RNA sequence: UCGAGAGGACGACCUCCCCCUUCUGGGCAAAAACUCGGGACGACCCGA
Numbered sequence: 001u002c003g004a005g006a007g008g009a010c011g012a013c014c015u016c017c018c019c020c021u022u023c024u025g026g027g028c029a030a031a032a033a034c035u036c037g038g039g040a041c042g043a044c045c046c047g048a
Stems, first nucleotide, its partner, number of pairs: 003018001005016004035048005

The family of this 48-nucleotide sequence from Rhizobium metallidurans is "Guanidine-II riboswitch aptamer (mini-ykkC)". The literature on the family includes a 2007 paper in Nucleic Acids Res by Weinberg et al., "Identification of 22 candidate structured RNAs in bacteria using the CMfinder comparative genomics pipeline". About the family: Simpler in structure and has fewer highly conserved nucleotide positions than the ykkC-yxkD leader. Despite this each of its two stem-loop structures directly bind free guanidine. Therefore, mini-ykkC RNA motif represents a distinct class of guanidine-sensing RNAs. Its crystal structure was also determined. The base pairs follow the family's consensus structure, which is taken from published work.